This 103-nucleotide RNA sequence from Actinokineospora auranticolor belongs to the Rfam family "Glycine riboswitch aptamer". The pairing is the family consensus, mapped onto this sequence. The organism belongs to Actinokineospora, within Bacteria. A search with the family's covariance model found it, with a score of 63 bits. The family has 44 seed sequences and 9,425 matches in Rfam 15.1.

[Rfam]
RNA sequence: UGAACCCACGCGGGAGAGUCCGCCCGGUCCACCCGGACCGGGACGGCGCCGAAGGAGCAAAUCCUCCCCGGAACCUCUCAGGCAAACGGACCGCGCGGGUGAG
Numbered sequence: 001u002g003a004a005c006c007c008a009c010g011c012g013g014g015a016g017a018g019u020c021c022g023c024c025c026g027g028u029c030c031a032c033c034c035g036g037a038c039c040g041g042g043a044c045g046g047c048g049c050c051g052a053a054g055g056a057g058c059a060a061a062u063c064c065u066c067c068c069c070g071g072a073a074c075c076u077c078u079c080a081g082g083c084a085a086a087c088g089g090a091c092c093g094c095g096c097g098g099g100u101g102a103g
Stems, first nucleotide, its partner, number of pairs: 006098002009095005020046003048083003051079002055077003062070001